RNA sequence: GCCCGUUCCGAGGGGAGCCCCCGUGAGGGGGGCUGAGAUUGGGCCCGGCGGCCCUGACCCUUGAACCUGAUCCGGCUCAUACCGGCGGAGGGACGGGAACCUGCGGCCUG
Dot-bracket structure: .....(((((((((.((((((.......))))).......((((......)))))..))))....(((...((((......))))...)))..)))))............
RNA: TPP riboswitch aptamer (THI element)
Organism: Methylobacterium radiodurans